RNA sequence: GCCCGGUGAUGACUAAUUUAUGCUUGUUUGUGAAAAACAUUUGCAGUUGCCGCAUAUUUGCUUUCGCCCUGCCAGGCUUGUGAGAGCUAAUGUUGUUAGAUCCUUACUUGGGAUGUCUGAGGGC
Numbered sequence: 001g002c003c004c005g006g007u008g009a010u011g012a013c014u015a016a017u018u019u020a021u022g023c024u025u026g027u028u029u030g031u032g033a034a035a036a037a038c039a040u041u042u043g044c045a046g047u048u049g050c051c052g053c054a055u056a057u058u059u060g061c062u063u064u065c066g067c068c069c070u071g072c073c074a075g076g077c078u079u080g081u082g083a084g085a086g087c088u089a090a091u092g093u094u095g096u097u098a099g100a101u102c103c104u105u106a107c108u109u110g111g112g113a114u115g116u117c118u119g120a121g122g123g124c
Stems, first nucleotide, its partner, number of pairs: 001124004060087008
The family of this 124-nucleotide sequence from Aegilops tauschii is "Small nucleolar RNA SNORD14". It scores 71 bits against the family's covariance model.